[Rfam]
RNA sequence: UGGGCUGGCCGGAAGACCUGGGCCCACCAAACGGCGGGUAAGACACCC
Numbered sequence: 001u002g003g004g005c006u007g008g009c010c011g012g013a014a015g016a017c018c019u020g021g022g023c024c025c026a027c028c029a030a031a032c033g034g035c036g037g038g039u040a041a042g043a044c045a046c047c048c
Stems, first nucleotide, its partner, number of pairs: 001026006007018002010015001
RNA: DUF3800-XI RNA